Source information:
miR-430 microRNA precursor family: a 70-nucleotide RNA from Sphaeramia orbicularis. Lineage of the source: Eukaryota > Deuterostomia > Neoteleostei > Ctenosquamata > Sphaeramia. Rfam 15.1 lists 24,817 matches to the family in 105 species.
RNA sequence: AAUAUUACCCUAACCUGAGCAUUGACUUUUUUAUUUCACUGAGUAAGUGCUUCUUGUUGGGGUAGUUUGA
Number, nucleotide and partner (000 for none) at each position: 001a000002a000003u000004a066005u065006u064007a063008c062009c061010c060011u059012a000013a057014c056015c000016u000017g053018a051019g050020c049021a048022u047023u046024g000025a044026c043027u042028u000029u000030u000031u000032u000033a000034u000035u000036u000037c000038a000039c000040u000041g000042a027043g026044u025045a000046a023047g022048u021049g020050c019051u018052u000053c017054u000055u000056g014057u013058u000059g011060g010061g009062g008063u007064a006065g005066u004067u000068u000069g000070a000